[Rfam]
RNA sequence: UUGACAACACUGGAGGCUGAAGCCCUCUAUUUAUCCACAGAACAGAUACAGCAUGGGCGACAGCCGUGCAAGCUUCCCCACACUGCCCCCACCAAUGUGCCUCAUCUCUGUCCUGGAGGGACCACCUCUAGAGGUGAGAGGAUAGAUUGGUCUCCAUGACACAUCCAGUCAUGGCCUUU
Numbered sequence: 001u002u003g004a005c006a007a008c009a010c011u012g013g014a015g016g017c018u019g020a021a022g023c024c025c026u027c028u029a030u031u032u033a034u035c036c037a038c039a040g041a042a043c044a045g046a047u048a049c050a051g052c053a054u055g056g057g058c059g060a061c062a063g064c065c066g067u068g069c070a071a072g073c074u075u076c077c078c079c080a081c082a083c084u085g086c087c088c089c090c091a092c093c094a095a096u097g098u099g100c101c102u103c104a105u106c107u108c109u110g111u112c113c114u115g116g117a118g119g120g121a122c123c124a125c126c127u128c129u130a131g132a133g134g135u136g137a138g139a140g141g142a143u144a145g146a147u148u149g150g151u152c153u154c155c156a157u158g159a160c161a162c163a164u165c166c167a168g169u170c171a172u173g174g175c176c177u178u179u
Stems, first nucleotide, its partner, number of pairs: 003165002011156010025141001027140002030138006038110003048102001051100005063086002066083001113131007
The record is a 179-nucleotide sequence from Varanus komodoensis, which matches "TUC338" in Rfam. The match comes from Rfam's covariance-model search (128 bits). The literature on the family includes a 2011 paper in Proc Natl Acad Sci U S A by Braconi et al., "Expression and functional role of a transcribed noncoding RNA with an ultraconserved element in hepatocellular carcinoma". NCBI's taxonomy places the organism under Eukaryota, Gnathostomata, Squamata, Anguimorpha, Varanus.